This 46-nucleotide RNA sequence from Lentisphaera araneosa belongs to the Rfam family "Acido-Lenti-1 RNA". It is one of the family's seed sequences. Taxonomically the source falls in Lentisphaera araneosa (Bacteria, Lentisphaeria, Lentisphaerales, Lentisphaeraceae). The base pairs follow the family's consensus structure, which is taken from published work.
RNA sequence: CCUAGCACUUCCGUGCCAGGUUAAUGUAUGGCGUGCCUUCGGCACU
Number, nucleotide and partner (000 for none) at each position: 001c020002c019003u018004a000005g016006c015007a014008c013009u000010u000011c000012c000013g008014u007015g006016c005017c000018a003019g002020g001021u000022u000023a000024a000025u000026g000027u000028a000029u000030g000031g000032c000033g045034u044035g043036c042037c041038u000039u000040c000041g037042g036043c035044a034045c033046u000